[Rfam]
RNA sequence: GCCGACAAAGGCAAACCCGUCGCGAGGCGGGGACGCAAAGCCACGGGCCUCGACGACGCGCGUCGUCGAGGCAGCCGGGUCCCCGAAG
Numbered sequence: 001g002c003c004g005a006c007a008a009a010g011g012c013a014a015a016c017c018c019g020u021c022g023c024g025a026g027g028c029g030g031g032g033a034c035g036c037a038a039a040g041c042c043a044c045g046g047g048c049c050u051c052g053a054c055g056a057c058g059c060g061c062g063u064c065g066u067c068g069a070g071g072c073a074g075c076c077g078g079g080u081c082c083c084c085g086a087a088g
Stems, first nucleotide, its partner, number of pairs: 003085002011036002016031006034074001040080003044077003047072009
This 88-nucleotide RNA sequence from Rubrobacter marinus belongs to the Rfam family "c-di-GMP-I-GGC riboswitch aptamer". On this family, see Weinberg et al., Proc Natl Acad Sci U S A 2017: "Bioinformatic analysis of riboswitch structures uncovers variant classes with altered ligand specificity". It scores 63 bits against the family's covariance model. Lineage of the source: Bacteria > Actinomycetota > Rubrobacteria > Rubrobacterales > Rubrobacter.